[Rfam]
Alphaproteobacteria transfer-messenger RNA: a 350-nucleotide RNA from Allosediminivita pacifica. Lineage of the source: Bacteria > Pseudomonadota > Rhodobacterales > Paracoccaceae > Allosediminivita.

RNA sequence: CCCCUUUGCAAGCCGCGCCACCCCGCCUAUAUUCCGAGUGUCUCGCAAGGGACUAUGGGCAUAAACGCGCACAUAAUAAGCGGAUCGGACCCGGGGGCGGUACCCGGCGGCUCCACCAAAUACCCGGCGUUGGCGGGAACAUGGGGCCGAAAUAGGAUCGACGAACGUGUAAAGGUGUAGCUUUGUCCCGGUGAGAUACCACCGUUAUCGGUUCAUUAAGCAUAGUUGCCAACGACAAUCAUGCUCCGGUUGCAGUUGCUGCGUAAGCAGUGACAAGACCGAAAUCUAAGCCCUUGCGCCUAGCAGCGUAAGGCGGGGUUCGCAGGCACCUGGCAACAGAAGCCUGCACU
Numbered sequence: 001c002c003c004c005u006u007u008g009c010a011a012g013c014c015g016c017g018c019c020a021c022c023c024c025g026c027c028u029a030u031a032u033u034c035c036g037a038g039u040g041u042c043u044c045g046c047a048a049g050g051g052a053c054u055a056u057g058g059g060c061a062u063a064a065a066c067g068c069g070c071a072c073a074u075a076a077u078a079a080g081c082g083g084a085u086c087g088g089a090c091c092c093g094g095g096g097g098c099g100g101u102a103c104c105c106g107g108c109g110g111c112u113c114c115a116c117c118a119a120a121u122a123c124c125c126g127g128c129g130u131u132g133g134c135g136g137g138a139a140c141a142u143g144g145g146g147c148c149g150a151a152a153u154a155g156g157a158u159c160g161a162c163g164a165a166c167g168u169g170u171a172a173a174g175g176u177g178u179a180g181c182u183u184u185g186u187c188c189c190g191g192u193g194a195g196a197u198a199c200c201a202c203c204g205u206u207a208u209c210g211g212u213u214c215a216u217u218a219a220g221c222a223u224a225g226u227u228g229c230c231a232a233c234g235a236c237a238a239u240c241a242u243g244c245u246c247c248g249g250u251u252g253c254a255g256u257u258g259c260u261g262c263g264u265a266a267g268c269a270g271u272g273a274c275a276a277g278a279c280c281g282a283a284a285u286c287u288a289a290g291c292c293c294u295u296g297c298g299c300c301u302a303g304c305a306g307c308g309u310a311a312g313g314c315g316g317g318g319u320u321c322g323c324a325g326g327c328a329c330c331u332g333g334c335a336a337c338a339g340a341a342g343c344c345u346g347c348a349c350u
Stems, first nucleotide, its partner, number of pairs: 040053005057188005067181002069178004081167002085164003091107005108149007189204004195214002198212003316331004322347006